[Rfam]
RNA sequence: AGCCUUCUGGUGCUGACCACAGGGUGUGUUCUUACAUAGACUGUAUAGAAAGAGGAGGCAAAAUAAACCAAUUCCAUAUACACCUCAGCCUAGGUCCUGCGGUCCAGUCUGUAUUGUGAAUGGGGACACAAGG
Dot-bracket structure: .(((((((...........(((...((((....))))...))).........)))))))............((((((........(((.((.(((......))).)).)))........))))))........
RNA: Small nucleolar RNA SNORA51
Organism: Castor canadensis